[Rfam]
RNA sequence: GAUGUUGCAGAAGGUCUACUCCUCCUCCCAAGACCGACUGCGGGAAUGGCGACACUCCUCCUCCCAGUCGCCAUUCGGUUCUAUCGGAAAGCCUGCCGCCUCCUCCUCCCGCGGCAGGCUUUUCCA
Numbered sequence: 001g002a003u004g005u006u007g008c009a010g011a012a013g014g015u016c017u018a019c020u021c022c023u024c025c026u027c028c029c030a031a032g033a034c035c036g037a038c039u040g041c042g043g044g045a046a047u048g049g050c051g052a053c054a055c056u057c058c059u060c061c062u063c064c065c066a067g068u069c070g071c072c073a074u075u076c077g078g079u080u081c082u083a084u085c086g087g088a089a090a091g092c093c094u095g096c097c098g099c100c101u102c103c104u105c106c107u108c109c110c111g112c113g114g115c116a117g118g119c120u121u122u123u124c125c126a
Stems, first nucleotide, its partner, number of pairs: 007041003013035005044076010089121011
Alphaproteobacterial ar14: a 126-nucleotide RNA from Shinella fusca. By type it is a small RNA. For this family Rfam cites "A survey of sRNA families in alpha-proteobacteria" (del Val et al., RNA Biol, 2012). The base pairs follow the family's consensus structure. A search with the family's covariance model found it, with a score of 97 bits.